[Rfam]
Annotation:
The family of this 150-nucleotide RNA sequence from Cupriavidus metallidurans is "Group II catalytic intron D1-D4-7".
RNA sequence: CCUGCUAUGCGACUAGCAGUAGCCUAGGGAGACAUGCGUCACGGGUAACUGUGGGGUGUGAAGCUCUCCUGACAACGAAGCCCCCGCAAGGGUGCGUAACUGCCGAGAGGUAGAGACGCAGAGACUCCUAGCAGCAAUGGGGUCGAGGAG
Numbered sequence: 001c002c003u004g005c006u007a008u009g010c011g012a013c014u015a016g017c018a019g020u021a022g023c024c025u026a027g028g029g030a031g032a033c034a035u036g037c038g039u040c041a042c043g044g045g046u047a048a049c050u051g052u053g054g055g056g057u058g059u060g061a062a063g064c065u066c067u068c069c070u071g072a073c074a075a076c077g078a079a080g081c082c083c084c085c086g087c088a089a090g091g092g093u094g095c096g097u098a099a100c101u102g103c104c105g106a107g108a109g110g111u112a113g114a115g116a117c118g119c120a121g122a123g124a125c126u127c128c129u130a131g132c133a134g135c136a137a138u139g140g141g142g143u144c145g146a147g148g149a150g
Stems, first nucleotide, its partner, number of pairs: 002019006028069005033060005039054006083092003093120004103110002124143005
From the family's description: Group II introns are found in rRNA, tRNA and mRNA of organelles in fungi, plants and protists, and also in mRNA in bacteria. The source organism's lineage runs through Bacteria, Pseudomonadati, Betaproteobacteria, Cupriavidus and Cupriavidus metallidurans. Pairs were carried over by alignment from the consensus structure.